[Rfam]
RNA sequence: CCCAGAGGCCCCACACGGGCGUUUCCUCCCUGACUUGGGCCACCCUUCGGGGUGGCUUUUUUUUUGGCUCUAU
Dot-bracket structure: .......((((.....))))................(((((((((....)))))))))...............